[Rfam]
Rfam assigns this 50-nucleotide RNA from Pseudorhodoplanes sinuspersici to the family "Xanthine riboswitch aptamer (NMT1 RNA)". Lineage of the source: Bacteria > Pseudomonadati > Pseudomonadota > Alphaproteobacteria > Pseudorhodoplanes.
RNA sequence: AGGGCGAGUAUAAGCGGUCAGGGCCAUUGGUCCGGGACAUUGCUCGGCAA
Numbered sequence: 001a002g003g004g005c006g007a008g009u010a011u012a013a014g015c016g017g018u019c020a021g022g023g024c025c026a027u028u029g030g031u032c033c034g035g036g037a038c039a040u041u042g043c044u045c046g047g048c049a050a
Stems, first nucleotide, its partner, number of pairs: 005046006015035001018037002021033005